[Rfam]
Rfam assigns this 119-nucleotide sequence from Glycine soja to the family "MIR4374 microRNA precursor family".
NCBI's taxonomy places the organism under Eukaryota, Tracheophyta, eudicotyledons, fabids, Glycine subgen. Soja.

RNA sequence: CAAAGACGGUGUUUACCUCAACAUCGUCUUUGAAAGUAGACAUUCUAAGACGUUGUUGAGAUAAGCACCGUCUUUGAAUGUCCACUUUCAAAGACGUUGCUGAGGUAAGCACCGUCCUU
Numbered sequence: 001c002a003a004a005g006a007c008g009g010u011g012u013u014u015a016c017c018u019c020a021a022c023a024u025c026g027u028c029u030u031u032g033a034a035a036g037u038a039g040a041c042a043u044u045c046u047a048a049g050a051c052g053u054u055g056u057u058g059a060g061a062u063a064a065g066c067a068c069c070g071u072c073u074u075u076g077a078a079u080g081u082c083c084a085c086u087u088u089c090a091a092a093g094a095c096g097u098u099g100c101u102g103a104g105g106u107a108a109g110c111a112c113c114g115u116c117c118u119u
Stems, first nucleotide, its partner, number of pairs: 005116003009112012022099002025096013039082001041080005047074006054067004